[Rfam]
RNA: Small nucleolar RNA SNORD20
Organism: Erpetoichthys calabaricus
RNA sequence: UAGAUAUGAUGAACUGACUCUCUGAGCAAAACUGAUGAUUGUUUUUACUUUAAUCCUCUAGAUAGUCAAGUACUGAUCUAG
Numbered sequence: 001u002a003g004a005u006a007u008g009a010u011g012a013a014c015u016g017a018c019u020c021u022c023u024g025a026g027c028a029a030a031a032c033u034g035a036u037g038a039u040u041g042u043u044u045u046u047a048c049u050u051u052a053a054u055c056c057u058c059u060a061g062a063u064a065g066u067c068a069a070g071u072a073c074u075g076a077u078c079u080a081g
Base pairs, nucleotide, nucleotide: 001080002079003078004077